[Rfam]
This 138-nucleotide RNA from Kamptonema sp. PCC 6506 belongs to the Rfam family "Guanidine-I riboswitch aptamer". From the family's description: This family represents a conserved RNA structure found upstream of the ykkC and yxkD genes in Bacillus subtilis and related genes in other bacteria. Taxonomically the source falls in Kamptonema (Bacteria, Bacillati, Cyanobacteriota, Oscillatoriales).
RNA sequence: AGGAAUCGCUUCUAGGGUUCCGAUCUAGUGAGAGAACUAGAUGUCUGGUCCAAGAGAAGCAGCCAAUAUUCAAUUAUCCCUAAAAAAUACGAUGGGGAAAUUGAAUCGGUCACACGGCGGGAGAAAAGCCCGGGAGAA
Numbered sequence: 001a002g003g004a005a006u007c008g009c010u011u012c013u014a015g016g017g018u019u020c021c022g023a024u025c026u027a028g029u030g031a032g033a034g035a036a037c038u039a040g041a042u043g044u045c046u047g048g049u050c051c052a053a054g055a056g057a058a059g060c061a062g063c064c065a066a067u068a069u070u071c072a073a074u075u076a077u078c079c080c081u082a083a084a085a086a087a088u089a090c091g092a093u094g095g096g097g098a099a100a101u102u103g104a105a106u107c108g109g110u111c112a113c114a115c116g117g118c119g120g121g122a123g124a125a126a127a128g129c130c131c132g133g134g135a136g137a138a
Base pairs, nucleotide, nucleotide: 008060009059010058011057012056015051016050020048021047022045023042024041025040026039027038028037062111064109113133115136119131120130121129
Dot-bracket structure: .......(((((..((...(((((((((........))))))..).)).))....))))).(.(............................................).).(.[...(((.......))).)..]..